Shown here is a 159-nucleotide RNA sequence from Edwardsiella hoshinae, a member of the family "Glm Y RNA activator of glmS mRNA". Lineage of the source: Bacteria > Gammaproteobacteria > Enterobacterales > Hafniaceae > Edwardsiella. The base pairs follow the family's consensus structure, which is taken from published work. This family consists of a number of bacterial RNA genes of around 167 bases in length. The tke1 RNA gene is present in Escherichia coli, Shigella flexneri, Yersinia pestis and Salmonella species where it is found between the yfhK and purL genes. The function of this RNA is unknown. The family's RNA type in Rfam is small RNA. The match comes from Rfam's covariance-model search (110 bits). Its Rfam clan is "Glm clan".
[Rfam]
RNA sequence: GGUUGCUCAUUCAACUCUUUAUGUCAGCGCCUUGAUGGCCGGCUCCAUAAAACCUCGAAUGACGCCAUUAGCACGGUGCCUACCGUCCGGGAAUAUCGAUAACAGUCGCUUCGGCGCUUUAUCAGGCACAGGACGACACGUUGAGUGAGGCGCCACCUA
Dot-bracket structure: ....((((((((......(((((..(((.............))).)))))......)))))).)).........(((((((..(((((.........(((((................))))).......))))).(((.....)))))))))).....
Numbered sequence: 001g002g003u004u005g006c007u008c009a010u011u012c013a014a015c016u017c018u019u020u021a022u023g024u025c026a027g028c029g030c031c032u033u034g035a036u037g038g039c040c041g042g043c044u045c046c047a048u049a050a051a052a053c054c055u056c057g058a059a060u061g062a063c064g065c066c067a068u069u070a071g072c073a074c075g076g077u078g079c080c081u082a083c084c085g086u087c088c089g090g091g092a093a094u095a096u097c098g099a100u101a102a103c104a105g106u107c108g109c110u111u112c113g114g115c116g117c118u119u120u121a122u123c124a125g126g127c128a129c130a131g132g133a134c135g136a137c138a139c140g141u142u143g144a145g146u147g148a149g150g151c152g153c154c155a156c157c158u159a
Stems, first nucleotide, its partner, number of pairs: 005065002007062006019050005026044003075154007084135005098123005137147003